[Rfam]
RNA sequence: UAGUCAGGUAGGGUAAUCCUUACCUGUUCCUUGUUUUGGAGGGCAGAUUAGAACAUGAUAAUUGGAGUUCACAUGACUCCUGAUUACCAGCUCUGUGUAAUCAGGACUUACAACACCCUGAUUGCUCCUAUCUGAU
Numbered sequence: 001u002a003g004u005c006a007g008g009u010a011g012g013g014u015a016a017u018c019c020u021u022a023c024c025u026g027u028u029c030c031u032u033g034u035u036u037u038g039g040a041g042g043g044c045a046g047a048u049u050a051g052a053a054c055a056u057g058a059u060a061a062u063u064g065g066a067g068u069u070c071a072c073a074u075g076a077c078u079c080c081u082g083a084u085u086a087c088c089a090g091c092u093c094u095g096u097g098u099a100a101u102c103a104g105g106a107c108u109u110a111c112a113a114c115a116c117c118c119u120g121a122u123u124g125c126u127c128c129u130a131u132c133u134g135a136u
Stems, first nucleotide, its partner, number of pairs: 024046003028043005075093002078090001081086001097125009